[Rfam]
RNA sequence: UGGACCAGUGAUGAUGACUUAUGAUAAAGGAGUCAUGGACAAUGAGAAAAUAUGUGUCUGAAACUCUGAGGUCCAA
Number, nucleotide and partner (000 for none) at each position: 001u000002g074003g073004a072005c071006c070007a000008g000009u000010g000011a000012u000013g000014a000015u000016g000017a000018c000019u000020u000021a000022u000023g000024a000025u000026a000027a000028a000029g000030g000031a000032g000033u000034c000035a000036u000037g000038g000039a000040c000041a000042a000043u000044g000045a000046g000047a000048a000049a000050a000051u000052a000053u000054g000055u000056g000057u000058c000059u000060g000061a000062a000063a000064c000065u000066c000067u000068g000069a000070g006071g005072u004073c003074c002075a000076a000